Rfam assigns this 75-nucleotide RNA from Caenorhabditis angaria to the family "Caenorhabditis snoRNA ceN53". Rfam links the family to the GO terms RNA processing and nucleolus. The base pairs follow the family's consensus structure. NCBI's taxonomy places the organism under Eukaryota, Eumetazoa, Ecdysozoa, Rhabditida, Caenorhabditis.
RNA sequence: CGGCGGUGAUAGAUUCAAAGUGAGCCAAAUCCUUUUCUGAAAGAAUCUGUGAGGAUUAAUGAUAGGACUGAGCCG
Numbered sequence: 001c002g003g004c005g006g007u008g009a010u011a012g013a014u015u016c017a018a019a020g021u022g023a024g025c026c027a028a029a030u031c032c033u034u035u036u037c038u039g040a041a042a043g044a045a046u047c048u049g050u051g052a053g054g055a056u057u058a059a060u061g062a063u064a065g066g067a068c069u070g071a072g073c074c075g
Base pairs, nucleotide, nucleotide: 001075002074003073004072